[Rfam]
RNA sequence: AUUACCUUUAAUACGGUCCUGAGAGGCUGAAAAGGGCGAAUGAAUAUUGGAUAUUUUAUUUAACUAUGCCUAUUUAUGCCCUUUUGUCCUCUCAGACGAAAGGGUAUUUAUU
Numbered sequence: 001a002u003u004a005c006c007u008u009u010a011a012u013a014c015g016g017u018c019c020u021g022a023g024a025g026g027c028u029g030a031a032a033a034g035g036g037c038g039a040a041u042g043a044a045u046a047u048u049g050g051a052u053a054u055u056u057u058a059u060u061u062a063a064c065u066a067u068g069c070c071u072a073u074u075u076a077u078g079c080c081c082u083u084u085u086g087u088c089c090u091c092u093c094a095g096a097c098g099a100a101a102g103g104g105u106a107u108u109u110a111u112u
Base pairs, nucleotide, nucleotide: 005035006034007033008032009031014029015028016027017026018025044075046073047072049070050069056063057062076107077106078105079104080103081102082101083100084099085098086097087096088095
RNA: PyrR binding site
Organism: Bacillus sp. PK3_68